RNA sequence: GCUGAUGAUGAUAUAAUCCAAUUUGCUUGAGGUGUUGUGGAUCCAAGUCCCUGUUUUCAGGAUGAACCUACUUGGUGAAGCUACAUUCAUGUGAUAACAAGGGAUUUAACUGAGGC
Numbered sequence: 001g002c003u004g005a006u007g008a009u010g011a012u013a014u015a016a017u018c019c020a021a022u023u024u025g026c027u028u029g030a031g032g033u034g035u036u037g038u039g040g041a042u043c044c045a046a047g048u049c050c051c052u053g054u055u056u057u058c059a060g061g062a063u064g065a066a067c068c069u070a071c072u073u074g075g076u077g078a079a080g081c082u083a084c085a086u087u088c089a090u091g092u093g094a095u096a097a098c099a100a101g102g103g104a105u106u107u108a109a110c111u112g113a114g115g116c
Stems, first nucleotide, its partner, number of pairs: 001116003050061004

This 116-nucleotide sequence from Cajanus cajan belongs to the Rfam family "Small nucleolar RNA Z278". On this family, see Chen et al., Nucleic Acids Res 2003: "The high diversity of snoRNAs in plants: identification and comparative study of 120 snoRNA genes from Oryza sativa". It scores 58 bits against the family's covariance model. The family's RNA type in Rfam is C/D-box small nucleolar RNA. The base pairs follow the family's consensus structure, which was predicted with PFOLD. From the family's description: snoZ278 is a C/D box small nucleolar RNA. Its methylation guide targets have not been reported. Rfam 15.1 lists 1,130 matches to the family in 214 species.